[Rfam]
RNA sequence: CAAGACAAAGCCAACCCUGCCGAAAGACAGGUACGGAAAGCAACGGGUCUCAACAGAUAGCCGAGCUGCCUUGA
Numbered sequence: 001c002a003a004g005a006c007a008a009a010g011c012c013a014a015c016c017c018u019g020c021c022g023a024a025a026g027a028c029a030g031g032u033a034c035g036g037a038a039a040g041c042a043a044c045g046g047g048u049c050u051c052a053a054c055a056g057a058u059a060g061c062c063g064a065g066c067u068g069c070c071u072u073g074a
Base pairs, nucleotide, nucleotide: 003071004070011036012035016031017030018029019028021026034060039067040066041065044063045062046061047058048057049056
RNA: c-di-GMP-I-GGC riboswitch aptamer